Nucleotides: 103
Base pairs, nucleotide, nucleotide: 001103002102003101004100005099006098007097008096013044015043016042017041018040022033023032024031028077029076030075045070046069047068048067050066051065052062054060074095079092080091081090082089083088
Number, partner (000 for none) and nucleotide at each position: 001103c002102u003101c004100u005099u006098a007097u008096c009000g010000c011000g012000a013044g014000u015043u016042g017041g018040c019000a020000g021000a022033g023032g024031g025000a026000a027000u028077u029076g030075g031024c032023c033022c034000g035000a036000u037000g038000a039000c040018g041017c042016c043015g044013c045070a046069g047068c048067a049000a050066c051065c052062g053000a054060c055000c056000a057000c058000u059000a060054g061000g062052c063000a064000c065051g066050g067048u068047g069046c070045u071000a072000c073000a074095u075030c076029c077028a078000c079092c080091a081090g082089a083088c084000g085000a086000a087000u088083g089082u090081c091080u092079g093000a094000c095074a096008g097007a098006u099005g100004a101003g102002a103001g

This 103-nucleotide RNA sequence from Exiguobacterium chiriqhucha belongs to the Rfam family "SAM riboswitch aptamer (S box leader)". Rfam describes the family as follows. The SAM riboswitch is found upstream of a number of genes which code for proteins involved in methionine or cysteine biosynthesis in Gram-positive bacteria. The family's consensus secondary structure is taken from published work.